RNA sequence: AAAGUCCGCCACGACGAUCGCGGGAACCAUUGGUUCACGAGGAAAGUCCGGACUCCAUAGAGCACCGUAGCAGCUAACGGCUGCCUGCCGCAAGGUACGGAUUAGAGCAACAGAGACGAGCCGGCGUUAGGGUCGGGUGAAACGGGCAAUCUCUACGGGGAGCAACAUCAAAUAGGCAACCGCUGAUCCUGCUCGGGGAGGUUGCGGGUAGAUGGCUUGAGGCAAGGCGCGAGUUUUGUCCUAGAUGAAUGAUUGUCGGUCGAGGAUGCUUUUUCUCGAAACAUAAUCCGGCUUAUCGGUGGGCUUUGUCU
Numbered sequence: 001a002a003a004g005u006c007c008g009c010c011a012c013g014a015c016g017a018u019c020g021c022g023g024g025a026a027c028c029a030u031u032g033g034u035u036c037a038c039g040a041g042g043a044a045a046g047u048c049c050g051g052a053c054u055c056c057a058u059a060g061a062g063c064a065c066c067g068u069a070g071c072a073g074c075u076a077a078c079g080g081c082u083g084c085c086u087g088c089c090g091c092a093a094g095g096u097a098c099g100g101a102u103u104a105g106a107g108c109a110a111c112a113g114a115g116a117c118g119a120g121c122c123g124g125c126g127u128u129a130g131g132g133u134c135g136g137g138u139g140a141a142a143c144g145g146g147c148a149a150u151c152u153c154u155a156c157g158g159g160g161a162g163c164a165a166c167a168u169c170a171a172a173u174a175g176g177c178a179a180c181c182g183c184u185g186a187u188c189c190u191g192c193u194c195g196g197g198g199a200g201g202u203u204g205c206g207g208g209u210a211g212a213u214g215g216c217u218u219g220a221g222g223c224a225a226g227g228c229g230c231g232a233g234u235u236u237u238g239u240c241c242u243a244g245a246u247g248a249a250u251g252a253u254u255g256u257c258g259g260u261c262g263a264g265g266a267u268g269c270u271u272u273u274u275c276u277c278g279a280a281a282c283a284u285a286a287u288c289c290g291g292c293u294u295a296u297c298g299g300u301g302g303g304c305u306u307u308g309u310c311u
Stems, first nucleotide, its partner, number of pairs: 001307010011296001013257007021039002024036005044294003048291005053162004060194004065158005070084005085099001086097004100153002105151002107147002121136005166214004176205006187197003221240008